[Rfam]
RNA: tRNA
Organism: Chlamydomonas eustigma
RNA sequence: AGAAGAGUAGCUCAAUAGGUAGAGUGUCGGAUUCCAAAUCCUAUGGUUGCUAGUUCAAUUCUAGUUUCUUCUG
Numbered sequence: 001a002g003a004a005g006a007g008u009a010g011c012u013c014a015a016u017a018g019g020u021a022g023a024g025u026g027u028c029g030g031a032u033u034c035c036a037a038a039u040c041c042u043a044u045g046g047u048u049g050c051u052a053g054u055u056c057a058a059u060u061c062u063a064g065u066u067u068c069u070u071c072u073g
Stems, first nucleotide, its partner, number of pairs: 001072007010025004027043001029041003049065005